[Rfam]
RNA sequence: ACCAGUGACACGGGGUGCCCGCCAUGGGCUGAGAACACACCCGUCGAACCUGAUCUAGCUCGUACUAGCGAAGGGAUGUCGCGAAUGUCGCGC
Numbered sequence: 001a002c003c004a005g006u007g008a009c010a011c012g013g014g015g016u017g018c019c020c021g022c023c024a025u026g027g028g029c030u031g032a033g034a035a036c037a038c039a040c041c042c043g044u045c046g047a048a049c050c051u052g053a054u055c056u057a058g059c060u061c062g063u064a065c066u067a068g069c070g071a072a073g074g075g076a077u078g079u080c081g082c083g084a085a086u087g088u089c090g091c092g093c
Stems, first nucleotide, its partner, number of pairs: 006081005011043004016037001017029005049074003055068004
Rfam assigns this 93-nucleotide sequence from Paramicrobacterium agarici to the family "TPP riboswitch aptamer (THI element)". Taxonomically the source falls in Paramicrobacterium (Bacteria, Bacillati, Actinomycetes, Micrococcales). The family's consensus secondary structure is taken from published work. A search with the family's covariance model found it, with a score of 70 bits. Gene Ontology term of the family: thiamine pyrophosphate binding.